[Rfam]
RNA: Small nucleolar RNA Z102/R77
RNA sequence: AGAGAUAUGAUGAUGGAAUUAGAUUUCCCUAUUGGUUUGAUCGCCGUUAUGAUGGCAUCUUACGUAUUAGCUCUAUCUGAUCUCU
Numbered sequence: 001a002g003a004g005a006u007a008u009g010a011u012g013a014u015g016g017a018a019u020u021a022g023a024u025u026u027c028c029c030u031a032u033u034g035g036u037u038u039g040a041u042c043g044c045c046g047u048u049a050u051g052a053u054g055g056c057a058u059c060u061u062a063c064g065u066a067u068u069a070g071c072u073c074u075a076u077c078u079g080a081u082c083u084c085u
Stems, first nucleotide, its partner, number of pairs: 002084003039059001043056003